A member of the RNA family "Bacterial antisense RNA HPnc0260", 149 nucleotides long.

[Rfam]
RNA sequence: CCGAUAAUAUUUUCGCUCAAAAUAAACCUUUUAUCAUAUUUGUUUUUAACAUAAUGUUUCAAAAUGGGGUAAUUAUAGCUAAAAGUUUGAUAGAAAUAAAUUAAAUGAAGUGGUGAUCACGAUUGGACUCGAACCAACGACCCCUACCA
Numbered sequence: 001c002c003g004a005u006a007a008u009a010u011u012u013u014c015g016c017u018c019a020a021a022a023u024a025a026a027c028c029u030u031u032u033a034u035c036a037u038a039u040u041u042g043u044u045u046u047u048a049a050c051a052u053a054a055u056g057u058u059u060c061a062a063a064a065u066g067g068g069g070u071a072a073u074u075a076u077a078g079c080u081a082a083a084a085g086u087u088u089g090a091u092a093g094a095a096a097u098a099a100a101u102u103a104a105a106u107g108a109a110g111u112g113g114u115g116a117u118c119a120c121g122a123u124u125g126g127a128c129u130c131g132a133a134c135c136a137a138c139g140a141c142c143c144c145u146a147c148c149a
Stems, first nucleotide, its partner, number of pairs: 018042003026034001057072002111146003115142001120139002123137004